The family of this 170-nucleotide sequence from Cohnella candida is "c-di-AMP riboswitch aptamer (ydaO/yuaA leader)". Pairs were carried over by alignment from the consensus structure. From the family's description: This family represents a conserved RNA structure found upstream of the ydaO and yuaA genes in Bacillus subtilis and related genes in other bacteria. The ydaO/yuaA element is thought to act as a genetic 'off' switch for the ydaO and yuaA genes in its native state. It is believed that the element may be triggered during osmotic shock leading to activation of ydaO, a predicted amino acid transporter gene, and members of the yuaA-yubG operon which code for KtrA and KtrB K+ transporters.
RNA sequence: AUAGUCAAACAGCCGAAUUUCAAUGGAUGAAAACGGGGGAACCAACCAUGCCGCGGAACGACCCAGCGGCUACCCGGGGUGAAUUCGACCGCGCCAGCCGCGGAACGAUAGGGCAGCCUGUUCGAGCCCGAACCCGUCAGCUAACCUCGCAGGCUGCACGGAACAGGACU
Numbered sequence: 001a002u003a004g005u006c007a008a009a010c011a012g013c014c015g016a017a018u019u020u021c022a023a024u025g026g027a028u029g030a031a032a033a034c035g036g037g038g039g040a041a042c043c044a045a046c047c048a049u050g051c052c053g054c055g056g057a058a059c060g061a062c063c064c065a066g067c068g069g070c071u072a073c074c075c076g077g078g079g080u081g082a083a084u085u086c087g088a089c090c091g092c093g094c095c096a097g098c099c100g101c102g103g104a105a106c107g108a109u110a111g112g113g114c115a116g117c118c119u120g121u122u123c124g125a126g127c128c129c130g131a132a133c134c135c136g137u138c139a140g141c142u143a144a145c146c147u148c149g150c151a152g153g154c155u156g157c158a159c160g161g162a163a164c165a166g167g168a169c170u
Stems, first nucleotide, its partner, number of pairs: 011155004018032003034149005043076001077135003085108003111129004